[Rfam]
RNA sequence: UGGUCUCUUGCUUCAACAGUGCUUAAAUGGAACCG
Number, nucleotide and partner (000 for none) at each position: 001u035002g034003g033004u032005c000006u031007c030008u029009u000010g028011c000012u027013u026014c000015a024016a023017c021018a000019g000020u000021g017022c000023u016024u015025a000026a013027a012028u010029g008030g007031a006032a004033c003034c002035g001